A member of the RNA family "t44 RNA" from Legionella israelensis, 103 nucleotides long. NCBI's taxonomy places the organism under Bacteria, Pseudomonadati, Pseudomonadota, Legionellaceae, Legionella. It is annotated as a small RNA.

RNA sequence: AAGUAACGCGCUUAAAUACACACACGUUUCGACACAUAUGGCUGGGUCUCAAAUUGGAAGUGCGUUCAUUUUGGGUGUCAUAUGGGGAGCGUGGAGGCAUAAC
Numbered sequence: 001a002a003g004u005a006a007c008g009c010g011c012u013u014a015a016a017u018a019c020a021c022a023c024a025c026g027u028u029u030c031g032a033c034a035c036a037u038a039u040g041g042c043u044g045g046g047u048c049u050c051a052a053a054u055u056g057g058a059a060g061u062g063c064g065u066u067c068a069u070u071u072u073g074g075g076u077g078u079c080a081u082a083u084g085g086g087g088a089g090c091g092u093g094g095a096g097g098c099a100u101a102a103c
Base pairs, nucleotide, nucleotide: 023093024092025091026090027089028088029087030086035084036083037082038081039080040079041078042077048075049074050073051072052071